[Rfam]
RNA sequence: UUCUUAUCGUGAGAGGUGGAGGGACUGGCCCUAUGAAACCCAGCAACCAACAUAAAUUCCAUUUAAUUUAUGCAUGGUGCUAAUUCCUGCAGCUAUUUUUUAGCUGAUAGAUGAGAG
Numbered sequence: 001u002u003c004u005u006a007u008c009g010u011g012a013g014a015g016g017u018g019g020a021g022g023g024a025c026u027g028g029c030c031c032u033a034u035g036a037a038a039c040c041c042a043g044c045a046a047c048c049a050a051c052a053u054a055a056a057u058u059c060c061a062u063u064u065a066a067u068u069u070a071u072g073c074a075u076g077g078u079g080c081u082a083a084u085u086c087c088u089g090c091a092g093c094u095a096u097u098u099u100u101u102a103g104c105u106g107a108u109a110g111a112u113g114a115g116a117g
Stems, first nucleotide, its partner, number of pairs: 001117008013041001015040003021031003025089001027087002042081004047077002051072007085109001090106006
SAM riboswitch aptamer (S box leader): a 117-nucleotide sequence from Clostridium intestinale. NCBI's taxonomy places the organism under Bacteria, Eubacteriales, Clostridiaceae, Clostridium, Clostridium intestinale.